The family of this 186-nucleotide sequence from Melghirimyces profundicolus is "Lysine riboswitch aptamer". The match comes from Rfam's covariance-model search (124 bits). Gene Ontology term of the family: lysine biosynthetic process. The organism belongs to Melghirimyces, within Bacteria. For this family Rfam cites "Riboswitches Control Fundamental Biochemical Pathways in Bacillus subtilis and Other Bacteria" (Mandal et al., Cell, 2003).

RNA sequence: GGGUGAGGUAGAGGAGCGGUACCGAUGAGUAGCCGGCAGGAGGUCCGGGGAGACCGGGGAUGGCCGGUGAAAGGCGGGAUCGCCGAAGUCCGCGCGUGUCCCUUGCACGUGCGGGCUGGGCCCGUCUCCGAACAGGGGCGGGACUGUCACACCGGAGGUAUUCCGGUGUGGAGCGCUAUCUCGGAA
Numbered sequence: 001g002g003g004u005g006a007g008g009u010a011g012a013g014g015a016g017c018g019g020u021a022c023c024g025a026u027g028a029g030u031a032g033c034c035g036g037c038a039g040g041a042g043g044u045c046c047g048g049g050g051a052g053a054c055c056g057g058g059g060a061u062g063g064c065c066g067g068u069g070a071a072a073g074g075c076g077g078g079a080u081c082g083c084c085g086a087a088g089u090c091c092g093c094g095c096g097u098g099u100c101c102c103u104u105g106c107a108c109g110u111g112c113g114g115g116c117u118g119g120g121c122c123c124g125u126c127u128c129c130g131a132a133c134a135g136g137g138g139c140g141g142g143a144c145u146g147u148c149a150c151a152c153c154g155g156a157g158g159u160a161u162u163c164c165g166g167u168g169u170g171g172a173g174c175g176c177u178a179u180c181u182c183g184g185a186a
Stems, first nucleotide, its partner, number of pairs: 006181006016083005022077003032068006039061001087117012118145002121142008147171007